[Rfam]
RNA: Clostridiales-1 RNA
RNA sequence: UGAGCAAUAAGUGGAUGAAAAACCAAUUUUUGUUUCUGCUUGCAGAAAAACAAAAUUGGUUUUGAAGACACAAUGGACAUGAGGAAGUAGCACGAUAGUGCGGAUUCCGAAUGGCCGUAGGAUUGCGAGAGCGAAGCGGAGCAAUCCGUAUUGCUCA
Numbered sequence: 001u002g003a004g005c006a007a008u009a010a011g012u013g014g015a016u017g018a019a020a021a022a023c024c025a026a027u028u029u030u031u032g033u034u035u036c037u038g039c040u041u042g043c044a045g046a047a048a049a050a051c052a053a054a055a056u057u058g059g060u061u062u063u064g065a066a067g068a069c070a071c072a073a074u075g076g077a078c079a080u081g082a083g084g085a086a087g088u089a090g091c092a093c094g095a096u097a098g099u100g101c102g103g104a105u106u107c108c109g110a111a112u113g114g115c116c117g118u119a120g121g122a123u124u125g126c127g128a129g130a131g132c133g134a135a136g137c138g139g140a141g142c143a144a145u146c147c148g149u150a151u152u153g154c155u156c157a
Stems, first nucleotide, its partner, number of pairs: 001157007013069001016066001019063006026057001028055005033049001034047005073118004078113003083108004090101004120147007131137002